[Rfam]
Rfam assigns this 266-nucleotide RNA to the family "Soft rot Enterobacteriaceae Rev 39 5'UTR". It scores 154 bits against the family's covariance model. By type it is a cis-regulatory element. Rfam describes the family as follows. From bacteria cultured under starvation conditions.
RNA sequence: AAGUGUUGUCAUGUCGCGCGCGGCUGUGGUACCUCUGUAAGCAUUAGUUCUGAAUGAGCACAGUGAACAAACCCAUUAUGAAAGCCUUUGCCCAAGUGAUUAGCCUAGUCGUGAUUAGCGUGGUGGUGAUUAUUAUCCCACCGUGCGGGGCUGCACUUGGACGAAGAAAGGCUUAGCAAACAAGCCGGAAUCGCAAGAGAACCCCCGCACCGUCAGGUCCGGGGGUUUUUUAUUGGCAAGAGAAAAGUGGAGCAAGGGGCAGAGCA
Number, nucleotide and partner (000 for none) at each position: 001a000002a000003g000004u000005g033006u000007u031008g030009u029010c028011a027012u026013g024014u000015c022016g021017c000018g000019c000020g000021c016022g015023g000024c013025u000026g012027u011028g010029g009030u008031a007032c000033c005034u000035c000036u000037g076038u075039a000040a000041g072042c000043a000044u067045u066046a000047g064048u063049u000050c058051u000052g000053a000054a000055u000056g000057a000058g050059c000060a000061c000062a000063g048064u047065g000066a045067a044068c000069a000070a000071a000072c041073c000074c000075a038076u037077u000078a000079u000080g000081a000082a000083a000084g000085c000086c257087u256088u255089u000090g253091c252092c000093c000094a248095a000096g000097u000098g000099a000100u242101u241102a000103g000104c000105c236106u235107a234108g233109u000110c120111g119112u118113g000114a000115u000116u000117a000118g112119c111120g110121u000122g142123g141124u140125g139126g138127u000128g137129a136130u135131u000132a000133u000134u000135a130136u129137c128138c126139c125140a124141c123142c122143g162144u161145g000146c159147g158148g157149g156150g000151c000152u000153g000154c000155a000156c149157u148158u147159g146160g000161a144162c143163g192164a191165a000166g000167a000168a000169a000170g186171g185172c184173u183174u182175a000176g000177c000178a000179a000180a000181c000182a174183a173184g172185c171186c170187g000188g000189a000190a000191u164192c163193g000194c000195a000196a231197g230198a229199g228200a227201a226202c225203c224204c223205c222206c221207g220208c000209a218210c217211c216212g000213u000214c000215a000216g211217g210218u209219c000220c207221g206222g205223g204224g203225g202226u201227u200228u199229u198230u197231u196232a000233u108234u107235g106236g105237c000238a000239a000240g000241a101242g100243a000244a000245a000246a000247g000248u094249g000250g000251a000252g091253c090254a000255a088256g087257g086258g000259g000260c000261a000262g000263a000264g000265c000266a000